[Rfam]
RNA sequence: CGGUGGGACACUCCUCCCCAACGAGGAGCACCUAUCUGGAAGGGUAGUCAGA
Numbered sequence: 001c002g003g004u005g006g007g008a009c010a011c012u013c014c015u016c017c018c019c020a021a022c023g024a025g026g027a028g029c030a031c032c033u034a035u036c037u038g039g040a041a042g043g044g045u046a047g048u049c050a051g052a
Base pairs, nucleotide, nucleotide: 011028012027013026014025015024016023032047033046034045035044036043037042